Shown here is a 75-nucleotide sequence from Haemonchus placei, a member of the family "mir-5928 microRNA precursor family".
Pairs were carried over by alignment from the consensus structure, which was predicted with RNAalifold.
The family has 5 seed sequences and 1,672 matches in Rfam 15.1.

[Rfam]
RNA sequence: GGCCCAAAUUUGAUGUGGAGUAGAUCGGUAGUAUCAGCUGACCCUACUAAUCUACUAUACUUCAAAUUUGGCUCC
Numbered sequence: 001g002g003c004c005c006a007a008a009u010u011u012g013a014u015g016u017g018g019a020g021u022a023g024a025u026c027g028g029u030a031g032u033a034u035c036a037g038c039u040g041a042c043c044c045u046a047c048u049a050a051u052c053u054a055c056u057a058u059a060c061u062u063c064a065a066a067u068u069u070g071g072c073u074c075c
Stems, first nucleotide, its partner, number of pairs: 001074002004071006011064003015060003019056005025050001027048004034041002